Notes:
Small nucleolar RNA SNORA61: a 132-nucleotide RNA from Rhinopithecus bieti. It scores 110 bits against the family's covariance model. The family's consensus secondary structure was predicted with PFOLD. Its family is annotated with RNA processing and nucleolus in the Gene Ontology. ACA61 is a member of the H/ACA class of snoRNA that guide the sites of modification of uridines to pseudouridines.

RNA sequence: AUCCUCUGGUUCCUUUUCCCAUUGGAUCUGAACACUGGUCUUGGUGGUUGUAAAAGGAGGAAAAGUAACACUGAAGGUGGCUUCGCAGUCUUGUAGUCUGGUAUAUCGUUUCCACGAUGGUUUGAAAUAAUA
Numbered sequence: 001a002u003c004c005u006c007u008g009g010u011u012c013c014u015u016u017u018c019c020c021a022u023u024g025g026a027u028c029u030g031a032a033c034a035c036u037g038g039u040c041u042u043g044g045u046g047g048u049u050g051u052a053a054a055a056g057g058a059g060g061a062a063a064a065g066u067a068a069c070a071c072u073g074a075a076g077g078u079g080g081c082u083u084c085g086c087a088g089u090c091u092u093g094u095a096g097u098c099u100g101g102u103a104u105a106u107c108g109u110u111u112c113c114a115c116g117a118u119g120g121u122u123u124g125a126a127a128u129a130a131u132a
Stems, first nucleotide, its partner, number of pairs: 003060005019047005025040004078119002081116001083114001093109002